The family of this 104-nucleotide RNA from Shewanella frigidimarina is "Vibrio RNA AS9".
For this family Rfam cites "Experimental discovery of sRNAs in Vibrio cholerae by direct cloning, 5S/tRNA depletion and parallel sequencing" (Liu et al., Nucleic Acids Res, 2009).
Identified by direct cloning an parallel sequencing experiments with 5S/tRNA depletion. Confirmed by Northern blot.
The base pairs follow the family's consensus structure, which was predicted with RNAfold.
Taxonomically the source falls in Shewanella frigidimarina (Bacteria, Pseudomonadati, Gammaproteobacteria, Shewanellaceae).
RNA sequence: CUGCUGACAACGCUCUUUGGUCAUUGUUUGGCAAAUUAAUCCACGGCCAUAGGUUGCCAUGAAGUUGAUUGCUGCUGGCGUCACUUUAUCAGCGGCCAUGAUCA
Numbered sequence: 001c002u003g004c005u006g007a008c009a010a011c012g013c014u015c016u017u018u019g020g021u022c023a024u025u026g027u028u029u030g031g032c033a034a035a036u037u038a039a040u041c042c043a044c045g046g047c048c049a050u051a052g053g054u055u056g057c058c059a060u061g062a063a064g065u066u067g068a069u070u071g072c073u074g075c076u077g078g079c080g081u082c083a084c085u086u087u088a089u090c091a092g093c094g095g096c097c098a099u100g101a102u103c104a
Base pairs, nucleotide, nucleotide: 003058005056006055007054008053009028010027011026012025014023035050036049040046041045066104067103068102069101070100071096072095074093075092076091077090080086